This 66-nucleotide RNA sequence from Ictidomys tridecemlineatus belongs to the Rfam family "Small nucleolar RNA SNORD77". Its Rfam clan is "SNORD77 clan". The base pairs follow the family's consensus structure, which was predicted with RNAalifold. U77 belongs to the C/D family of snoRNAs. It is predicted to guide 2'O-ribose methylation of large 28S rRNA subunit at position A1521. The C/D snoRNAs U44, U47, U74, U75, U76, U78, U79, U80 and U81 share the same host gene as U77 (non-coding). The literature on the family includes a 2004 paper in Curr Biol by Tycowski et al., "Guide RNAs with 5' caps and novel box C/D snoRNA-like domains for modification of snRNAs in metazoa". The sequence is in the family's curated seed alignment.

RNA sequence: AUACUGUGAUGGUUGCAUAGUUCAGCAGAUUUAAGUCAUGAAGAAAUAUACUUUUCUGAUGUAUCU
Numbered sequence: 001a002u003a004c005u006g007u008g009a010u011g012g013u014u015g016c017a018u019a020g021u022u023c024a025g026c027a028g029a030u031u032u033a034a035g036u037c038a039u040g041a042a043g044a045a046a047u048a049u050a051c052u053u054u055u056c057u058g059a060u061g062u063a064u065c066u
Base pairs, nucleotide, nucleotide: 001064002063003062004061006039007038008037009036010035013028014027015026016025044053045052